[Rfam]
RNA: T-box leader
RNA sequence: UAUGAAUCCUUGACGUGACUGAGUAAAUAAGAAUUGUGAACCAGAGAGUAAGGUCAUUUGCUGAAAGCCUUACCACCGCUUCUUAUUGAAACCUACCACUGAGAUGUUAUGACAACAUAACCGGUUCGUUGCCGUUAUGAAACGUUUAGAGGGCUUAGAUUCAGCUAAGCUAAACUAAGGUGGUACCACGUCCAUUCAGCACAAAGACGUCCUUUCA
Numbered sequence: 001u002a003u004g005a006a007u008c009c010u011u012g013a014c015g016u017g018a019c020u021g022a023g024u025a026a027a028u029a030a031g032a033a034u035u036g037u038g039a040a041c042c043a044g045a046g047a048g049u050a051a052g053g054u055c056a057u058u059u060g061c062u063g064a065a066a067g068c069c070u071u072a073c074c075a076c077c078g079c080u081u082c083u084u085a086u087u088g089a090a091a092c093c094u095a096c097c098a099c100u101g102a103g104a105u106g107u108u109a110u111g112a113c114a115a116c117a118u119a120a121c122c123g124g125u126u127c128g129u130u131g132c133c134g135u136u137a138u139g140a141a142a143c144g145u146u147u148a149g150a151g152g153g154c155u156u157a158g159a160u161u162c163a164g165c166u167a168a169g170c171u172a173a174a175c176u177a178a179g180g181u182g183g184u185a186c187c188a189c190g191u192c193c194a195u196u197c198a199g200c201a202c203a204a205a206g207a208c209g210u211c212c213u214u215u216c217a
Base pairs, nucleotide, nucleotide: 007104008103015099016098017097026087027086028085029084030083031082036076037075038074048073049072050071051070052069053068107120108119109118110117111116122134123133124132152171153170154169155168156167157166158165177214178213179212180211188210189209190208191207192206